[Rfam]
RNA sequence: GGGUGUACGGUGAAUGCCCUGGCAUCAGCAGGCGAUGAAGGACGUAGCUAGCUGCGAUAAGCCUCGGGGAGCCGCAAGCAGGCCGUGAUCCGAGGAUCUCCGAAUGGGGUAACCCAGGCGAUGAAUGCCGCCUCUCCUCUCCUGAAUCCAUAGGGAGAGCGAAGCCCACGCAGGGAAGUGAAACAUCUCAGUACCUGCAGGAACAGAAAUCAACAGAGAUUCCCCCAGUAGUGGCGAGCGAAAAGGGAACAGCCUAAACCGGAGUGGUGUCAAGCCCGUGUGCGUUGCCGCUCCGGUGUCGUAGGCCUUUGUCGGACGGUGAUACGGCGCCGUCGGCAAGUCAAAAACCAGGAUUUUAGCGAAACGGUCUGGAACGGCCGGCCAUAGAAGGUGACAGCCCUGUAGGCGAAAAAAUCCUGGCUUGCUGGAUGAAGGUCCUGAGUACCACGGGGCUCGAGCAACCCUGUGGGAAUCCGGGACGACCACGUUCCAAGGCUAAAUACUCGCUGAUGACCGAUAGCGAACCAGUACCGUGAGGGAAAGGUGAAAAGAACCCCGGUGAGGGGAGUGAAAUAGAACCUGAAACCGUACACCUACAAG
Numbered sequence: 001g002g003g004u005g006u007a008c009g010g011u012g013a014a015u016g017c018c019c020u021g022g023c024a025u026c027a028g029c030a031g032g033c034g035a036u037g038a039a040g041g042a043c044g045u046a047g048c049u050a051g052c053u054g055c056g057a058u059a060a061g062c063c064u065c066g067g068g069g070a071g072c073c074g075c076a077a078g079c080a081g082g083c084c085g086u087g088a089u090c091c092g093a094g095g096a097u098c099u100c101c102g103a104a105u106g107g108g109g110u111a112a113c114c115c116a117g118g119c120g121a122u123g124a125a126u127g128c129c130g131c132c133u134c135u136c137c138u139c140u141c142c143u144g145a146a147u148c149c150a151u152a153g154g155g156a157g158a159g160c161g162a163a164g165c166c167c168a169c170g171c172a173g174g175g176a177a178g179u180g181a182a183a184c185a186u187c188u189c190a191g192u193a194c195c196u197g198c199a200g201g202a203a204c205a206g207a208a209a210u211c212a213a214c215a216g217a218g219a220u221u222c223c224c225c226c227a228g229u230a231g232u233g234g235c236g237a238g239c240g241a242a243a244a245g246g247g248a249a250c251a252g253c254c255u256a257a258a259c260c261g262g263a264g265u266g267g268u269g270u271c272a273a274g275c276c277c278g279u280g281u282g283c284g285u286u287g288c289c290g291c292u293c294c295g296g297u298g299u300c301g302u303a304g305g306c307c308u309u310u311g312u313c314g315g316a317c318g319g320u321g322a323u324a325c326g327g328c329g330c331c332g333u334c335g336g337c338a339a340g341u342c343a344a345a346a347a348c349c350a351g352g353a354u355u356u357u358a359g360c361g362a363a364a365c366g367g368u369c370u371g372g373a374a375c376g377g378c379c380g381g382c383c384a385u386a387g388a389a390g391g392u393g394a395c396a397g398c399c400c401u402g403u404a405g406g407c408g409a410a411a412a413a414a415u416c417c418u419g420g421c422u423u424g425c426u427g428g429a430u431g432a433a434g435g436u437c438c439u440g441a442g443u444a445c446c447a448c449g450g451g452g453c454u455c456g457a458g459c460a461a462c463c464c465u466g467u468g469g470g471a472a473u474c475c476g477g478g479a480c481g482a483c484c485a486c487g488u489u490c491c492a493a494g495g496c497u498a499a500a501u502a503c504u505c506g507c508u509g510a511u512g513a514c515c516g517a518u519a520g521c522g523a524a525c526c527a528g529u530a531c532c533g534u535g536a537g538g539g540a541a542a543g544g545u546g547a548a549a550a551g552a553a554c555c556c557c558g559g560u561g562a563g564g565g566g567a568g569u570g571a572a573a574u575a576g577a578a579c580c581u582g583a584a585a586c587c588g589u590a591c592a593c594c595u596a597c598a599a600g
Base pairs, nucleotide, nucleotide: 001595002594003593004592005591006590007589008588009587010586016580017544018543021515022514023512024511025510026509027508028507029506030504031503032165033164040101041100042099043056044055045054062095063094064093065092066091067090068089071083072082073081106115107114108113116133117132118131119130120129122127135162136161137159138158139157140156141155142154143153169200170198171197172196173195174194180187181186210217211216220500221248222247223246224245231239232238251497252496253495254494259296260295261294262293263292264291265290266289267288268287269286303439304438305437308433309432310431311430312429345423346422348420349419350418351417352416353415354414355413356412357411359407360406365380366379367378368377369376383387389401390400391399445469446468447467448466449465450464451463452462476491477490478489479488480487531538532537554566555565556564557563
RNA: Bacterial large subunit ribosomal RNA, nucleotides 15 to 614